[Rfam]
A member of the RNA family "chrB-b RNA" from Sphingobium wenxiniae, 48 nucleotides long. Taxonomically the source falls in Sphingobium (Bacteria, Pseudomonadota, Alphaproteobacteria, Sphingobiaceae).
RNA sequence: ACGGGCCUUAUGCGGGCGCCCGUCCAGACGAUGGCCGUCCAAGUCCGC
Numbered sequence: 001a002c003g004g005g006c007c008u009u010a011u012g013c014g015g016g017c018g019c020c021c022g023u024c025c026a027g028a029c030g031a032u033g034g035c036c037g038u039c040c041a042a043g044u045c046c047g048c
Stems, first nucleotide, its partner, number of pairs: 001023006012048005027039004